[Rfam]
RNA sequence: UACCGGCAUUCCAACGCCGGCGCGGGCUACUGAAAAGGCUUGUCCUUCAUUGCCAGGUGUGCGGGCGGGAAAUUCCCAACCAAUCCACGGCAGCACAGUUCGUACUGAGUUCGAGGCUUCGUCGCGUCUCCAUCGUGCGACUGGCCGCAGCGCUCACGU
Numbered sequence: 001u002a003c004c005g006g007c008a009u010u011c012c013a014a015c016g017c018c019g020g021c022g023c024g025g026g027c028u029a030c031u032g033a034a035a036a037g038g039c040u041u042g043u044c045c046u047u048c049a050u051u052g053c054c055a056g057g058u059g060u061g062c063g064g065g066c067g068g069g070a071a072a073u074u075c076c077c078a079a080c081c082a083a084u085c086c087a088c089g090g091c092a093g094c095a096c097a098g099u100u101c102g103u104a105c106u107g108a109g110u111u112c113g114a115g116g117c118u119u120c121g122u123c124g125c126g127u128c129u130c131c132a133u134c135g136u137g138c139g140a141c142u143g144g145c146c147g148c149a150g151c152g153c154u155c156a157c158g159u
Stems, first nucleotide, its partner, number of pairs: 001022001003020005037054003061138003105121001107119004